[Rfam]
Shown here is a 274-nucleotide RNA sequence from Didymella exigua, a member of the family "A. fumigatus sRNA Afu_309". Rfam classes the family as a small RNA. On this family, see Jochl et al., Nucleic Acids Res 2008: "Small ncRNA transcriptome analysis from Aspergillus fumigatus suggests a novel mechanism for regulation of protein synthesis".
RNA sequence: CUCUCACCAACAGCCUGUGUCAGUUUCCCGUCCAUCUCUAGGGGUGUGUUCGGUCGAAAGCUGGCAGUUCGUUCGUGACCAUGGAGCCGUCUUGAUCAGUGGACGUCAAUAUUCGAACGACAGGCUGGAGAGCAAGUCGGUACGUCGCUAGAAACCUGAGUUCGCCGCAAGGUUUGAGCUCGGUGAAAGGUGCGUGCCAGGCAGACUGAUUCCUGUUCCCUUUUGCUAGACCGUCGGUCCAUGACGCUUGGGACAAACCCAGUUGGCUACAUCA
Numbered sequence: 001c002u003c004u005c006a007c008c009a010a011c012a013g014c015c016u017g018u019g020u021c022a023g024u025u026u027c028c029c030g031u032c033c034a035u036c037u038c039u040a041g042g043g044g045u046g047u048g049u050u051c052g053g054u055c056g057a058a059a060g061c062u063g064g065c066a067g068u069u070c071g072u073u074c075g076u077g078a079c080c081a082u083g084g085a086g087c088c089g090u091c092u093u094g095a096u097c098a099g100u101g102g103a104c105g106u107c108a109a110u111a112u113u114c115g116a117a118c119g120a121c122a123g124g125c126u127g128g129a130g131a132g133c134a135a136g137u138c139g140g141u142a143c144g145u146c147g148c149u150a151g152a153a154a155c156c157u158g159a160g161u162u163c164g165c166c167g168c169a170a171g172g173u174u175u176g177a178g179c180u181c182g183g184u185g186a187a188a189g190g191u192g193c194g195u196g197c198c199a200g201g202c203a204g205a206c207u208g209a210u211u212c213c214u215g216u217u218c219c220c221u222u223u224u225g226c227u228a229g230a231c232c233g234u235c236g237g238u239c240c241a242u243g244a245c246g247c248u249u250g251g252g253a254c255a256a257a258c259c260c261a262g263u264u265g266g267c268u269a270c271a272u273c274a
Base pairs, nucleotide, nucleotide: 011127012126013125014124015123016122017121018120019065020064021063022062023061024059025058026057027056028053029052030051033048034047036044037043074119075118076117079115082108083107084106086104088102138196139195143192144191145190155183156182158181159180160179161178162177163176165172166171201267202266204264205263206262207261208260217253218252219251220250225247226246229239230238231237232236
The match comes from Rfam's covariance-model search (86 bits).